Notes: Rfam assigns this 65-nucleotide sequence from Enterocloster bolteae to the family "GP20-b RNA". The family's RNA type in Rfam is cis-regulatory element. NCBI's taxonomy places the organism under Bacteria, Bacillati, Lachnospirales, Enterocloster, Enterocloster bolteae.

RNA sequence: GGUCAGAUGAUAAGACCUAAAACAGUUAGCCGUUGGUGAAUGGUUACACACCUACAAAUAACCUA
Numbered sequence: 001g002g003u004c005a006g007a008u009g010a011u012a013a014g015a016c017c018u019a020a021a022a023c024a025g026u027u028a029g030c031c032g033u034u035g036g037u038g039a040a041u042g043g044u045u046a047c048a049c050a051c052c053u054a055c056a057a058a059u060a061a062c063c064u065a
Base pairs, nucleotide, nucleotide: 001017002016003015004014009027010026011025035052036051037050038049